[Rfam]
RNA sequence: AAAUACGCUUCGCAAUGUGCGGCAAAAAACAUUGCUGUUACAAACACGCUUCACAAUGUGCGACAAAGGAACAUUGUUGUUACAAACACGCUUCACAAUGUGCGGCAAAAAAACAUUGU
Dot-bracket structure: .....[[[...(((((((]]].......)))))))...........[[[...(((((((]]]........)))))))...........[[[...(((((((]]]........)))))))